[Rfam]
RNA sequence: GAAUAUUGUUUAAUGUUCACUUGUAUAAAUCUAGCAAUAUGGGCUGGAUGUCUCUACCGAGCUACCUUAAAUAGUUGUAGGCUAUAAGUGCAUAUGCUUAUUGA
Numbered sequence: 001g002a003a004u005a006u007u008g009u010u011u012a013a014u015g016u017u018c019a020c021u022u023g024u025a026u027a028a029a030u031c032u033a034g035c036a037a038u039a040u041g042g043g044c045u046g047g048a049u050g051u052c053u054c055u056a057c058c059g060a061g062c063u064a065c066c067u068u069a070a071a072u073a074g075u076u077g078u079a080g081g082c083u084a085u086a087a088g089u090g091c092a093u094a095u096g097c098u099u100a101u102u103g104a
Stems, first nucleotide, its partner, number of pairs: 018090008029049007058080001060076005
Dot-bracket structure: .................((((((((...(((((((.......)))))))........(.(((((.......)))))...)..))))))))..............

Shown here is a 104-nucleotide sequence from Clostridium carboxidivorans, a member of the family "Purine riboswitch aptamer". Lineage of the source: Bacteria > Bacillati > Bacillota > Clostridia > Clostridium carboxidivorans. It scores 71 bits against the family's covariance model.